[Rfam]
RNA sequence: GGUCAGUGAUGUGUUGGCAUGUAUUAUCUGAAUCUAAAGUUGAUGCUUACCAUUCCUAUAGCUCUAGGAUUACUGAGACCUU
Numbered sequence: 001g002g003u004c005a006g007u008g009a010u011g012u013g014u015u016g017g018c019a020u021g022u023a024u025u026a027u028c029u030g031a032a033u034c035u036a037a038a039g040u041u042g043a044u045g046c047u048u049a050c051c052a053u054u055c056c057u058a059u060a061g062c063u064c065u066a067g068g069a070u071u072a073c074u075g076a077g078a079c080c081u082u
Stems, first nucleotide, its partner, number of pairs: 001080004
The record is an 82-nucleotide sequence from Ornithorhynchus anatinus, which matches "Small nucleolar RNA SNORD45" in Rfam.
Pairs were carried over by alignment from the consensus structure, which was predicted with PFOLD.
A reference for the family is Galardi et al. (2002), "Purified box C/D snoRNPs are able to reproduce site-specific 2'-O-methylation of target RNA in vitro", Mol Cell Biol.
The organism belongs to Ornithorhynchus, within Eukaryota.
Its family is annotated with nucleolus and RNA processing in the Gene Ontology.
It is annotated as a C/D-box small nucleolar RNA.